Shown here is a 92-nucleotide RNA from Oscillatoriaceae cyanobacterium M33_DOE_052, a member of the family "tRNA".

[Rfam]
RNA sequence: GGAGAGGUGGCUGAGUGGUCGAAAGCGGCAGAUUGCUAAUCUGUUGUAUGGCAGGUAACUCCAUACCGAGGGUUCGAAUCCCUCCCUCUCCG
Numbered sequence: 001g002g003a004g005a006g007g008u009g010g011c012u013g014a015g016u017g018g019u020c021g022a023a024a025g026c027g028g029c030a031g032a033u034u035g036c037u038a039a040u041c042u043g044u045u046g047u048a049u050g051g052c053a054g055g056u057a058a059c060u061c062c063a064u065a066c067c068g069a070g071g072g073u074u075c076g077a078a079u080c081c082c083u084c085c086c087u088c089u090c091c092g
Base pairs, nucleotide, nucleotide: 001091002090003089004088005087006086007085010026011025012024028044029043030042031041032040068084069083070082071081072080
It scores 64 bits against the family's covariance model.
Gene Ontology term of the family: triplet codon-amino acid adaptor activity.